[Rfam]
RNA sequence: UAGAAAAGCAUCAUUGAGUGCAGCGUUGAUGCAAAUUCCAGCUCAGUUCCUUCCUUGUUAUUGCCAUUGACGCUGCAUUCAAUCAUGUUUUUU
Numbered sequence: 001u002a003g004a005a006a007a008g009c010a011u012c013a014u015u016g017a018g019u020g021c022a023g024c025g026u027u028g029a030u031g032c033a034a035a036u037u038c039c040a041g042c043u044c045a046g047u048u049c050c051u052u053c054c055u056u057g058u059u060a061u062u063g064c065c066a067u068u069g070a071c072g073c074u075g076c077a078u079u080c081a082a083u084c085a086u087g088u089u090u091u092u093u
Stems, first nucleotide, its partner, number of pairs: 006090006013083016030066002

A member of the RNA family "MIR397 microRNA precursor family" from Arachis hypogaea, 93 nucleotides long.
Lineage of the source: Eukaryota > Mesangiospermae > eudicotyledons > Pentapetalae > Arachis.
The family has 7 seed sequences and 496 matches in Rfam 15.1.
Pairs were carried over by alignment from the consensus structure, which was predicted with WAR.